[Rfam]
RNA sequence: UUUUUAGUAUAAGUAUAUCCCAUGCAAUAUUCAGGACAUAUUUAUACUACAG
Numbered sequence: 001u002u003u004u005u006a007g008u009a010u011a012a013g014u015a016u017a018u019c020c021c022a023u024g025c026a027a028u029a030u031u032c033a034g035g036a037c038a039u040a041u042u043u044a045u046a047c048u049a050c051a052g
Stems, first nucleotide, its partner, number of pairs: 006048007014040003018036003022031001